[Rfam]
RNA sequence: CAGGGGGGACGACCCCCCUGAACCCCCCGGCACGAGCCCUGUGUCGUUCAGGGGGGACGACCCCC
Numbered sequence: 001c002a003g004g005g006g007g008g009a010c011g012a013c014c015c016c017c018c019u020g021a022a023c024c025c026c027c028c029g030g031c032a033c034g035a036g037c038c039c040u041g042u043g044u045c046g047u048u049c050a051g052g053g054g055g056g057a058c059g060a061c062c063c064c065c
Base pairs, nucleotide, nucleotide: 001020002019003018004017005016006015007014008013052065053064054063055062056061
Annotation: This 65-nucleotide sequence from Actinomadura viridis belongs to the Rfam family "Guanidine-II riboswitch aptamer (mini-ykkC)". The base pairs follow the family's consensus structure, which is taken from published work.